[Rfam]
A member of the RNA family "L17-Actino-Proteobacteria ribosomal protein leader" from Rhizobacter sp. Root1221, 53 nucleotides long.

RNA sequence: CUGGGUGGCCUCGUGCCACCCGGUGCCCCGGCAGUACCUGACACGGCUGCCGG
Numbered sequence: 001c002u003g004g005g006u007g008g009c010c011u012c013g014u015g016c017c018a019c020c021c022g023g024u025g026c027c028c029c030g031g032c033a034g035u036a037c038c039u040g041a042c043a044c045g046g047c048u049g050c051c052g053g
Stems, first nucleotide, its partner, number of pairs: 001023009027053001029052007
Rfam classes the family as a cis-regulatory leader.